[Rfam]
RNA sequence: AAUUAUGUUCAUAGGAACAAAGAGAUGCAGAUAUACAUUAUUCUAGAUAACUAACAAUAUGCAAUGGGG
Numbered sequence: 001a002a003u004u005a006u007g008u009u010c011a012u013a014g015g016a017a018c019a020a021a022g023a024g025a026u027g028c029a030g031a032u033a034u035a036c037a038u039u040a041u042u043c044u045a046g047a048u049a050a051c052u053a054a055c056a057a058u059a060u061g062c063a064a065u066g067g068g069g
Stems, first nucleotide, its partner, number of pairs: 003022002006019005043068002052059002

About this RNA:
Plastid-clpP 5UTR RNA: a 69-nucleotide sequence from Handroanthus impetiginosus. On this family, see Richter et al., Plant Commun 2023: "Retrograde signaling in plants: A critical review focusing on the GUN pathway and beyond". The family's consensus secondary structure was predicted with LocARNA. By type it is a cis-regulatory element. It scores 66 bits against the family's covariance model. Plastid clpP is a non-coding RNA (ncRNA) recognised in plastids. It was found in the prime untranslated region (5UTR) of a protease complex subunit (clpP) in plastids, suggesting a posible cis-regulatory function.